[Rfam]
Source information
A member of the RNA family "nqrA-II ncRNA motif" from Pseudohaemophilus parahaemolyticus, 160 nucleotides long. Rfam links the family to the GO term regulation of gene expression. The family's RNA type in Rfam is cis-regulatory element. The family's consensus secondary structure is taken from published work. A reference for the family is Narunsky et al. (2024), "The discovery of novel noncoding RNAs in 50 bacterial genomes", Nucleic Acids Res.
RNA sequence: UUGAUUUUCGAGAGGAUGCAGAAACGAUUUGAGAACUUUUUGUAACCUUUAAUUAUCAGUGGGGGAAUUCGCUUAUGAUUAAAUUAGUUACGACUCAAUACGCGAUUGCGAUUGUUCGCAAUCAUUUUUUAACCCAAGAGAAGUAGUGCAAAUAAUAUGA
Numbered sequence: 001u002u003g004a005u006u007u008u009c010g011a012g013a014g015g016a017u018g019c020a021g022a023a024a025c026g027a028u029u030u031g032a033g034a035a036c037u038u039u040u041u042g043u044a045a046c047c048u049u050u051a052a053u054u055a056u057c058a059g060u061g062g063g064g065g066a067a068u069u070c071g072c073u074u075a076u077g078a079u080u081a082a083a084u085u086a087g088u089u090a091c092g093a094c095u096c097a098a099u100a101c102g103c104g105a106u107u108g109c110g111a112u113u114g115u116u117c118g119c120a121a122u123c124a125u126u127u128u129u130u131a132a133c134c135c136a137a138g139a140g141a142a143g144u145a146g147u148g149c150a151a152a153u154a155a156u157a158u159g160a
Base pairs, nucleotide, nucleotide: 001013002012029098030097031096032095033094041092042091043090044089045088046087048083049082050081051080052079053078054077055076056075058073059072060071061070062069063068102149103148104123105122106121107120108119109118110117111116125143126142127141128140129139